[Rfam]
RNA sequence: CGGGGAGGGAGUGGGUGGCCCUCAGCCCGGAUUGCAAGAGGGUGCAGGCCAGGCCAAGGGACCCCACCAGUGCAGG
Numbered sequence: 001c002g003g004g005g006a007g008g009g010a011g012u013g014g015g016u017g018g019c020c021c022u023c024a025g026c027c028c029g030g031a032u033u034g035c036a037a038g039a040g041g042g043u044g045c046a047g048g049c050c051a052g053g054c055c056a057a058g059g060g061a062c063c064c065c066a067c068c069a070g071u072g073c074a075g076g
Stems, first nucleotide, its partner, number of pairs: 004073001006071001009068001014065002017062001019060004025054003029050002032047005
The record is a 76-nucleotide RNA from Myotis brandtii, which matches "mir-9193 microRNA precursor family" in Rfam.
Taxonomically the source falls in Myotis (Eukaryota, Deuterostomia, Sarcopterygii, Vespertilionidae).
A search with the family's covariance model found it, with a score of 58 bits.
Rfam 15.1 lists 6,008 matches to the family in 8 species.